[Rfam]
RNA sequence: UUUACAGAGCCAUUUUGACAUGCUGGCCGCCUCCGAAUGGGGGUAACAAUAAUUUUCUAUGGAGGUGGACAGAAUGCCAAAAUGGCUCUGUAAC
Dot-bracket structure: ..........(...(((.((...((.((((((((..........................)))))))).))...)).)))...)..........
Numbered sequence: 001u002u003u004a005c006a007g008a009g010c011c012a013u014u015u016u017g018a019c020a021u022g023c024u025g026g027c028c029g030c031c032u033c034c035g036a037a038u039g040g041g042g043g044u045a046a047c048a049a050u051a052a053u054u055u056u057c058u059a060u061g062g063a064g065g066u067g068g069a070c071a072g073a074a075u076g077c078c079a080a081a082a083u084g085g086c087u088c089u090g091u092a093a094c
Stems, first nucleotide, its partner, number of pairs: 011084001015080003019076002024071002027068008

Shown here is a 94-nucleotide RNA sequence from Tetracentron sinense, a member of the family "MIR394 microRNA precursor family". The literature on the family includes a 2004 paper in Mol Cell by Jones-Rhoades and Bartel, "Computational identification of plant microRNAs and their targets, including a stress-induced miRNA". It scores 66 bits against the family's covariance model. Lineage of the source: Eukaryota > Viridiplantae > Streptophyta > Trochodendrales > Tetracentron. Rfam links the family to the GO terms RISC complex and miRNA-mediated post-transcriptional gene silencing.